A member of the RNA family "eL15-Euryarchaeota ribosomal protein leader", 46 nucleotides long.
Rfam's curators put it in the seed alignment.
The family's RNA type in Rfam is cis-regulatory leader.
[Rfam]
RNA sequence: GCGGAUAUUGUCCGCUGGAAUGUAACCUUUAAGGUUGAACCGUAAA
Dot-bracket structure: (((((.....)))))(((.....(((((...)))))...)))....